[Rfam]
RNA: PyrR binding site
Organism: Halalkalibacter okhensis
RNA sequence: AUUCCCUUUAAUCGAGGUACAGAGAGACCUCAAAGGGGGUUGGUUGAAUGAGUUGGUUUACCAUCUCAGCUUCCCUGUACCCUUUGAGCCCUCUCGAAGGGUAUUUUUUAU
Numbered sequence: 001a002u003u004c005c006c007u008u009u010a011a012u013c014g015a016g017g018u019a020c021a022g023a024g025a026g027a028c029c030u031c032a033a034a035g036g037g038g039g040u041u042g043g044u045u046g047a048a049u050g051a052g053u054u055g056g057u058u059u060a061c062c063a064u065c066u067c068a069g070c071u072u073c074c075c076u077g078u079a080c081c082c083u084u085u086g087a088g089c090c091c092u093c094u095c096g097a098a099g100g101g102u103a104u105u106u107u108u109u110a111u
Stems, first nucleotide, its partner, number of pairs: 003038007014031005043074001046071001049068004054063003077104012